[Rfam]
RNA sequence: GACCCAAAUUUGAAGUAGAGUAGAUUAGAAGGAUCAUCUGACCCUACUAAACUAAUCUACUCCAAGGUUGCGCCC
Number, nucleotide and partner (000 for none) at each position: 001g074002a000003c072004c000005c070006a069007a068008a000009u066010u000011u064012g063013a000014a061015g060016u059017a058018g057019a056020g000021u054022a053023g052024a000025u050026u049027a048028g047029a000030a045031g000032g043033a000034u041035c040036a000037u000038c000039u000040g035041a034042c000043c032044c000045u030046a000047c028048u027049a026050a025051a000052c023053u022054a021055a000056u019057c018058u017059a016060c015061u014062c000063c012064a011065a000066g009067g000068u007069u006070g005071c000072g003073c000074c001075c000
Shown here is a 75-nucleotide sequence from Haemonchus placei, a member of the family "mir-5928 microRNA precursor family". Its family is annotated with miRNA-mediated post-transcriptional gene silencing and RISC complex in the Gene Ontology. The family's consensus secondary structure was predicted with RNAalifold. NCBI's taxonomy places the organism under Eukaryota, Opisthokonta, Bilateria, Trichostrongylidae, Haemonchus.